[Rfam]
RNA: Small nucleolar RNA snoR26
Organism: Coffea arabica
RNA sequence: UGAGCAUCAGUGAUGAUAUAUGACAAUUGUUAUCCUUGCACUUUGAUUACCGGUGAAGAAAACUAUGGGGAUUGACUCUGAUAUGCUG
Numbered sequence: 001u002g003a004g005c006a007u008c009a010g011u012g013a014u015g016a017u018a019u020a021u022g023a024c025a026a027u028u029g030u031u032a033u034c035c036u037u038g039c040a041c042u043u044u045g046a047u048u049a050c051c052g053g054u055g056a057a058g059a060a061a062a063c064u065a066u067g068g069g070g071a072u073u074g075a076c077u078c079u080g081a082u083a084u085g086c087u088g
Stems, first nucleotide, its partner, number of pairs: 003087005